[Rfam]
RNA sequence: GUUACGGACGGGCGAAGGUUUCAUCAAUCGUGUUGUAUUUUAUCGUGUCGGUCGGUGGGACUUUCGUUCGUUUGGAUU
Numbered sequence: 001g002u003u004a005c006g007g008a009c010g011g012g013c014g015a016a017g018g019u020u021u022c023a024u025c026a027a028u029c030g031u032g033u034u035g036u037a038u039u040u041u042a043u044c045g046u047g048u049c050g051g052u053c054g055g056u057g058g059g060a061c062u063u064u065c066g067u068u069c070g071u072u073u074g075g076a077u078u
Stems, first nucleotide, its partner, number of pairs: 003076001005074003009070007017062007025054001027052003
RNA: mir-278 microRNA precursor family